[Rfam]
RNA sequence: AUUAAGGAGCAAUAAACUUUUUCUUGUUCUAUCAAGAGGGUUUAUUGCUCCUUA
Numbered sequence: 001a002u003u004a005a006g007g008a009g010c011a012a013u014a015a016a017c018u019u020u021u022u023c024u025u026g027u028u029c030u031a032u033c034a035a036g037a038g039g040g041u042u043u044a045u046u047g048c049u050c051c052u053u054a
Stems, first nucleotide, its partner, number of pairs: 003054012019040001021038006
Plastid-psbA-4 3UTR RNA: a 54-nucleotide sequence from Scrophularia takesimensis. Plastid psbA-4 is a non-coding RNA (ncRNA) present in plastids. It was identified in inverted repeat sequences in the 3 prime untranslate region (3UTR) of photosystem II quinone-binding protein (psbA). Pairs were carried over by alignment from the consensus structure, which was predicted with LocARNA. For this family Rfam cites "Retrograde signaling in plants: A critical review focusing on the GUN pathway and beyond" (Richter et al., Plant Commun, 2023).